[Rfam]
RNA: c-di-AMP riboswitch aptamer (ydaO/yuaA leader)
Organism: Nocardioides sp. zg-1228
RNA sequence: UGGACCACACCCCCGCAUCACCCGUGGUCCACGAGCCGGGGAACCACACUUCCCCUGGGGUGAAUCCCCUGUGAGGCGUGUCGCGCGAGCGGCACGAGGAGCAGGGGUAGGCCAGUCGUGCCGAACCCGUCAGCUCACCUGGUAGGCGUACGACAUCCCGAGG
Numbered sequence: 001u002g003g004a005c006c007a008c009a010c011c012c013c014c015g016c017a018u019c020a021c022c023c024g025u026g027g028u029c030c031a032c033g034a035g036c037c038g039g040g041g042a043a044c045c046a047c048a049c050u051u052c053c054c055c056u057g058g059g060g061u062g063a064a065u066c067c068c069c070u071g072u073g074a075g076g077c078g079u080g081u082c083g084c085g086c087g088a089g090c091g092g093c094a095c096g097a098g099g100a101g102c103a104g105g106g107g108u109a110g111g112c113c114a115g116u117c118g119u120g121c122c123g124a125a126c127c128c129g130u131c132a133g134c135u136c137a138c139c140u141g142g143u144a145g146g147c148g149u150a151c152g153a154c155a156u157c158c159c160g161a162g163g
Stems, first nucleotide, its partner, number of pairs: 011148001013146002018034002035143006045057002058128003066107007110122003